[Rfam]
RNA sequence: CCUUUCCUUGUCAUGGGGUGAGUGAGCUGCUCAAUGAACGUAUAGUGAGAGCAGCCCUGCUGACAACAUAACAACACUUACGCAUCACCUGGACUCCGGUCCAGAUCAUGGUGCAAUUUUUGGAAAC
Numbered sequence: 001c002c003u004u005u006c007c008u009u010g011u012c013a014u015g016g017g018g019u020g021a022g023u024g025a026g027c028u029g030c031u032c033a034a035u036g037a038a039c040g041u042a043u044a045g046u047g048a049g050a051g052c053a054g055c056c057c058u059g060c061u062g063a064c065a066a067c068a069u070a071a072c073a074a075c076a077c078u079u080a081c082g083c084a085u086c087a088c089c090u091g092g093a094c095u096c097c098g099g100u101c102c103a104g105a106u107c108a109u110g111g112u113g114c115a116a117u118u119u120u121u122g123g124a125a126a127c
Stems, first nucleotide, its partner, number of pairs: 006018004022060003026055007038046002082114006089104006
The record is a 127-nucleotide sequence from Sparus aurata, which matches "U4atac minor spliceosomal RNA" in Rfam.
NCBI's taxonomy places the organism under Eukaryota, Bilateria, Neopterygii, Spariformes, Sparus.
Pairs were carried over by alignment from the consensus structure, which is taken from published work.
About the family: U4atac is an essential component of the minor U12-type spliceosome complex which is required for removal of the rarer class of eukaryotic introns (AT-AC, U12-type).
The family has 61 seed sequences and 1,648 matches in Rfam 15.1.
It is annotated as a spliceosomal small nuclear RNA.